[Rfam]
The record is a 71-nucleotide RNA sequence from Lasius niger, which matches "mir-12 microRNA precursor family" in Rfam.

RNA sequence: CAGGCGAGAGUAUUGCAUCAGGUACUGGUGUGAAGUCGAGGCAACCAGUACUUGUGUUAUACUUACGCCCG
Numbered sequence: 001c002a003g004g005c006g007a008g009a010g011u012a013u014u015g016c017a018u019c020a021g022g023u024a025c026u027g028g029u030g031u032g033a034a035g036u037c038g039a040g041g042c043a044a045c046c047a048g049u050a051c052u053u054g055u056g057u058u059a060u061a062c063u064u065a066c067g068c069c070c071g
Stems, first nucleotide, its partner, number of pairs: 001071001003069004009063004015057004021052009

For this family Rfam cites "Functional shifts in insect microRNA evolution" (Marco et al., Genome Biol Evol, 2010). Gene Ontology terms of the family: miRNA-mediated post-transcriptional gene silencing and RISC complex.